[Rfam]
Nucleotides: 082
Stems, first nucleotide, its partner, number of pairs: 001082007
Number, partner (000 for none) and nucleotide at each position: 001082g002081c003080u004079g005078g006077c007076a008000u009000a010000a011000u012000g013000a014000u015000g016000a017000g018000a019000c020000c021000a022000u023000u024000g025000c026000c027000g028000u029000u030000u031000a032000c033000c034000c035000a036000u037000c038000u039000g040000a041000a042000u043000g044000u045000g046000u047000u048000u049000u050000u051000u052000u053000g054000a055000u056000g057000u058000g059000u060000a061000u062000c063000u064000u065000u066000g067000a068000a069000u070000c071000u072000g073000a074000a075000a076007u077006g078005c079004c080003a081002g082001u